[Rfam]
RNA sequence: UUCAGAAUAUUGGUGCUGGGCAAAAGGUCACAUUUUGCACAACACCAAUAUUCUGAGG
Numbered sequence: 001u002u003c004a005g006a007a008u009a010u011u012g013g014u015g016c017u018g019g020g021c022a023a024a025a026g027g028u029c030a031c032a033u034u035u036u037g038c039a040c041a042a043c044a045c046c047a048a049u050a051u052u053c054u055g056a057g058g
Stems, first nucleotide, its partner, number of pairs: 001057004006052008017041002020038006026031001
RNA: mir-2024 microRNA precursor family
Organism: Nematostella vectensis